[Rfam]
RNA sequence: CGUCACCGUUCCGCGUACGGGGUCCGUCCGAGUCGCCCAGCGCCGGAUGCAAGGGCCCGCGACGGCACGAUGCGUCCGUAGUGGAGCCUGCGCAGAUG
Dot-bracket structure: .............(((...(((((((((.....(((...)))...)))....))))))))).....................................
RNA: malK-III RNA